[Rfam]
RNA sequence: ACCUCCUCCCGUGAAUCACAAAUGUCCUUAAUAGCAAUCCUUAAAUGCCAUUAAGGACAUUUGUGAUUGAUGGGAGGAGGA
Dot-bracket structure: .(((((((((...(((((((((((((((((((.(((.........))).)))))))))))))))))))...))))))))).
Numbered sequence: 001a002c003c004u005c006c007u008c009c010c011g012u013g014a015a016u017c018a019c020a021a022a023u024g025u026c027c028u029u030a031a032u033a034g035c036a037a038u039c040c041u042u043a044a045a046u047g048c049c050a051u052u053a054a055g056g057a058c059a060u061u062u063g064u065g066a067u068u069g070a071u072g073g074g075a076g077g078a079g080g081a
Stems, first nucleotide, its partner, number of pairs: 002080009014068019034048003
Rfam assigns this 81-nucleotide sequence from Homo sapiens to the family "mir-4477 microRNA precursor family".
It is one of the family's seed sequences.